Actinobacteria sRNA Ms_IGR-5: a 223-nucleotide RNA sequence from Streptomyces klenkii. The literature on the family includes a 2013 paper in RNA by Li et al., "Identification of small RNAs in Mycobacterium smegmatis using heterologous Hfq". The base pairs follow the family's consensus structure. The match comes from Rfam's covariance-model search (73 bits). NCBI's taxonomy places the organism under Bacteria, Bacillati, Actinomycetota, Actinomycetes, Streptomyces. It is annotated as a small RNA.
[Rfam]
RNA sequence: ACACGAGAAGGGAGGUGGUUCGGGACAUGAUUUCAGUCCGGACGCGUGAGGUGACUGCGGGCUAGCGCCCGUCGUCGCGCCAAGCGCAACGCCGGAGCCUCCCGGACUGCAGCCGGGGGAUGCGCCGGCCAAUCCCGAGCAGUCACCCGAUCCGUGGGCCGCCGAGUCGUCCGCUCGGCACCGCGGCGCCCCAGGGCGCGGCGGUAACCGGCCCACGGAUCGU
Numbered sequence: 001a002c003a004c005g006a007g008a009a010g011g012g013a014g015g016u017g018g019u020u021c022g023g024g025a026c027a028u029g030a031u032u033u034c035a036g037u038c039c040g041g042a043c044g045c046g047u048g049a050g051g052u053g054a055c056u057g058c059g060g061g062c063u064a065g066c067g068c069c070c071g072u073c074g075u076c077g078c079g080c081c082a083a084g085c086g087c088a089a090c091g092c093c094g095g096a097g098c099c100u101c102c103c104g105g106a107c108u109g110c111a112g113c114c115g116g117g118g119g120a121u122g123c124g125c126c127g128g129c130c131a132a133u134c135c136c137g138a139g140c141a142g143u144c145a146c147c148c149g150a151u152c153c154g155u156g157g158g159c160c161g162c163c164g165a166g167u168c169g170u171c172c173g174c175u176c177g178g179c180a181c182c183g184c185g186g187c188g189c190c191c192c193a194g195g196g197c198g199c200g201g202c203g204g205u206a207a208c209c210g211g212c213c214c215a216c217g218g219a220u221c222g223u
Base pairs, nucleotide, nucleotide: 015058016057017056018055019054060130061129062128063127065125066124069122148222149221150220151219152218153217154216155215156214157213158212159211160210161179162178163177164176165175166174